[Rfam]
RNA sequence: ACAAGGUGAUGACCUAUGAAUUGACAGCCAGUUACUUCUAACACCUGCCUGUCAGUUCUGUAGGCCACUGCUGCGU
Numbered sequence: 001a002c003a004a005g006g007u008g009a010u011g012a013c014c015u016a017u018g019a020a021u022u023g024a025c026a027g028c029c030a031g032u033u034a035c036u037u038c039u040a041a042c043a044c045c046u047g048c049c050u051g052u053c054a055g056u057u058c059u060g061u062a063g064g065c066c067a068c069u070g071c072u073g074c075g076u
Stems, first nucleotide, its partner, number of pairs: 001076002005072004010067002013064004018058010029047003
Dot-bracket structure: ((..((((.((.((((.((((((((((.(((.............))).))))))))))..)))).)).))))..))

Record summary
The record is a 76-nucleotide sequence from Oryzias latipes, which matches "mir-192/215 microRNA precursor family" in Rfam. Gene Ontology terms of the family: miRNA-mediated post-transcriptional gene silencing and RISC complex. A reference for the family is Ambros (2001), "microRNAs: tiny regulators with great potential", Cell. The organism belongs to Oryzias, within Eukaryota. This family represents the human microRNA (miRNA) precursors mir-192 and mir-215. Animal miRNAs are transcribed as ~70nt precursors and subsequently processed by the Dicer enzyme to give a ~22nt product. In this case the mature sequence comes from the 5' arm of the precursor. The extents of the hairpin precursors are not generally known and are estimated based on hairpin prediction. Pairs were carried over by alignment from the consensus structure, which was predicted with PFOLD.